[Rfam]
RNA sequence: CAGGAUCUGGUGACAGUCGUUCCUGUCGGAAUUCGGAAAUUCAGCAGUUUCUCCUGGCGCGUCCCCUUUGUGCAGCAGGUGUAACCUCCCACGCCCGCUAGCGAUGCGCCCUCCUUGCCUCGCUUGUCCUUCGGACCGGCGAGGCAUUUU
Numbered sequence: 001c002a003g004g005a006u007c008u009g010g011u012g013a014c015a016g017u018c019g020u021u022c023c024u025g026u027c028g029g030a031a032u033u034c035g036g037a038a039a040u041u042c043a044g045c046a047g048u049u050u051c052u053c054c055u056g057g058c059g060c061g062u063c064c065c066c067u068u069u070g071u072g073c074a075g076c077a078g079g080u081g082u083a084a085c086c087u088c089c090c091a092c093g094c095c096c097g098c099u100a101g102c103g104a105u106g107c108g109c110c111c112u113c114c115u116u117g118c119c120u121c122g123c124u125u126g127u128c129c130u131u132c133g134g135a136c137c138g139g140c141g142a143g144g145c146a147u148u149u150u
Stems, first nucleotide, its partner, number of pairs: 056110008075098002078095004117145008127135002
RNA: Rhizobiales sRNA Atu_C7
Organism: Mycoplana azooxidifex